[Rfam]
RNA sequence: CCAAUAAGGAUAGCGCCUGAUCUGGAAACAGAUGACGAGGAAAGAGUUUAUCGAAACAUUCGGCGGAUGACUCUAGGGACUGCACUCUACAGGCAAGAACAAAUCUCAUCGUAAGGUGAUGACAAAGACUUGCUACGCAGAUAG
Number, nucleotide and partner (000 for none) at each position: 001c000002c000003a000004a000005u000006a000007a000008g000009g000010a000011u000012a000013g000014c000015g000016c000017c000018u000019g000020a033021u032022c031023u030024g029025g000026a000027a000028a000029c024030a023031g022032a021033u020034g000035a000036c000037g000038a000039g000040g000041a000042a000043a074044g073045a072046g071047u070048u000049u000050a000051u063052c062053g061054a060055a000056a000057c000058a000059u000060u054061c053062g052063g051064c000065g000066g000067a000068u000069g000070a047071c046072u045073c044074u043075a088076g087077g086078g085079a000080c000081u000082g000083c000084a000085c078086u077087c076088u075089a000090c000091a000092g134093g133094c132095a131096a130097g129098a000099a000100c000101a000102a000103a000104u000105c000106u119107c118108a117109u116110c115111g000112u000113a000114a000115g110116g109117u108118g107119a106120u000121g000122a000123c000124a000125a000126a000127g000128a000129c097130u096131u095132g094133c093134u092135a000136c000137g000138c000139a000140g000141a000142u000143a000144g000
Shown here is a 144-nucleotide RNA from Enterococcus casseliflavus, a member of the family "glmS glucosamine-6-phosphate activated ribozyme aptamer". Its family is annotated with catalytic activity and regulation of gene expression in the Gene Ontology. By type it is a riboswitch. Lineage of the source: Bacteria > Bacillota > Bacilli > Enterococcaceae > Enterococcus casseliflavus. A reference for the family is Hampel and Tinsley (2006), "Evidence for preorganization of the glmS ribozyme ligand binding pocket", Biochemistry.